A member of the RNA family "Small nucleolar RNA F1/F2/snoR5a", 141 nucleotides long. It is annotated as an H/ACA-box small nucleolar RNA. Rfam's curators write: This family contains F1, F2 and snoR5a sequences, all of which are members of the the H/ACA class of snoRNA that guide the sites of modification of uridines to pseudouridines.

[Rfam]
RNA sequence: UAAUGGCCAUUUGGUAUCUGACACAUGGUCUGCUCUUGUGACUAUUAGUCUCGAAAUAUGGCAUAAAACAAGGGGGAACGGAUCUUGCGACAUUGGUGGUUCCUCUAUGAUCCUCCAAUUACUAUAUAGCCGUUUACAAUU
Numbered sequence: 001u002a003a004u005g006g007c008c009a010u011u012u013g014g015u016a017u018c019u020g021a022c023a024c025a026u027g028g029u030c031u032g033c034u035c036u037u038g039u040g041a042c043u044a045u046u047a048g049u050c051u052c053g054a055a056a057u058a059u060g061g062c063a064u065a066a067a068a069c070a071a072g073g074g075g076g077a078a079c080g081g082a083u084c085u086u087g088c089g090a091c092a093u094u095g096g097u098g099g100u101u102c103c104u105c106u107a108u109g110a111u112c113c114u115c116c117a118a119u120u121a122c123u124a125u126a127u128a129g130c131c132g133u134u135u136a137c138a139a140u141u
Stems, first nucleotide, its partner, number of pairs: 004063002007061004020050003025045006032039001077134005092119005098113002101110001

The family has 8 seed sequences and 325 matches in Rfam 15.1.